TPP riboswitch aptamer (THI element): a 152-nucleotide sequence from Exilibacterium tricleocarpae. A search with the family's covariance model found it, with a score of 57 bits.

RNA sequence: GCCUGCUUGUCGGGGUGCCCGGGAGCGCUUGUUGGUCUGCUGUUCGGAUUCUGCUGCUCCGAUAUACAGCAACCACCAAACGCCUCGAGCUGAGAGAUACCCGCCGACCUGAUCCGGCUAGUACCGGCGUAGGGAACGAGGCUUCAGAGGCA
Numbered sequence: 001g002c003c004u005g006c007u008u009g010u011c012g013g014g015g016u017g018c019c020c021g022g023g024a025g026c027g028c029u030u031g032u033u034g035g036u037c038u039g040c041u042g043u044u045c046g047g048a049u050u051c052u053g054c055u056g057c058u059c060c061g062a063u064a065u066a067c068a069g070c071a072a073c074c075a076c077c078a079a080a081c082g083c084c085u086c087g088a089g090c091u092g093a094g095a096g097a098u099a100c101c102c103g104c105c106g107a108c109c110u111g112a113u114c115c116g117g118c119u120a121g122u123a124c125c126g127g128c129g130u131a132g133g134g135a136a137c138g139a140g141g142c143u144u145c146a147g148a149g150g151c152a
Stems, first nucleotide, its partner, number of pairs: 006140005011103004016097001017090002020087004108133004114127004